Rfam assigns this 232-nucleotide sequence from Nocardia nova to the family "Actinobacteria sRNA Ms_IGR-5". Rfam classes the family as a small RNA. The source organism's lineage runs through Bacteria, Actinomycetota, Nocardiaceae, Nocardia and Nocardia nova.
RNA sequence: ACACGGGAAAGGAGGUGGUUCGAAGAAUGGAUAUUCAGAGGACGCGUGAGGUGGCUGCCGGUUGAGCGCCACAGCCGUGGUGACCUACCACGGCACGCUGCAGAGGAUUUCCUCUCCGCGCGAGCGCUGAGCUAAUCCAAGGCAGUCACCCGGCCCCCGAGCCCCCGGUUUGUCCGACCGGGAACCGCGAUGAGACACCGUCUCCGCAGGUAAGGCUCGGGGGCCGUACCCG
Numbered sequence: 001a002c003a004c005g006g007g008a009a010a011g012g013a014g015g016u017g018g019u020u021c022g023a024a025g026a027a028u029g030g031a032u033a034u035u036c037a038g039a040g041g042a043c044g045c046g047u048g049a050g051g052u053g054g055c056u057g058c059c060g061g062u063u064g065a066g067c068g069c070c071a072c073a074g075c076c077g078u079g080g081u082g083a084c085c086u087a088c089c090a091c092g093g094c095a096c097g098c099u100g101c102a103g104a105g106g107a108u109u110u111c112c113u114c115u116c117c118g119c120g121c122g123a124g125c126g127c128u129g130a131g132c133u134a135a136u137c138c139a140a141g142g143c144a145g146u147c148a149c150c151c152g153g154c155c156c157c158c159g160a161g162c163c164c165c166c167g168g169u170u171u172g173u174c175c176g177a178c179c180g181g182g183a184a185c186c187g188c189g190a191u192g193a194g195a196c197a198c199c200g201u202c203u204c205c206g207c208a209g210g211u212a213a214g215g216c217u218c219g220g221g222g223g224c225c226g227u228a229c230c231c232g
Base pairs, nucleotide, nucleotide: 014059015058016057017056018055019054060133061132062131063130065128066127068125069124074119075118151226152225153224154223155222156221157220158219159218160217161216162215163214164182165181166180167179168178169177